[Rfam]
RNA sequence: GGUCCCGAAGUUUGCUCAGAUGAUCCAGAUGUUAGUCGCCAGAUGGGAAGCAAUUAACAUUUGGAUCAUCUGAGCGAUCUUUCUGGAAG
Numbered sequence: 001g002g003u004c005c006c007g008a009a010g011u012u013u014g015c016u017c018a019g020a021u022g023a024u025c026c027a028g029a030u031g032u033u034a035g036u037c038g039c040c041a042g043a044u045g046g047g048a049a050g051c052a053a054u055u056a057a058c059a060u061u062u063g064g065a066u067c068a069u070c071u072g073a074g075c076g077a078u079c080u081u082u083c084u085g086g087a088a089g
Stems, first nucleotide, its partner, number of pairs: 003087003007082004012077025038051002040046001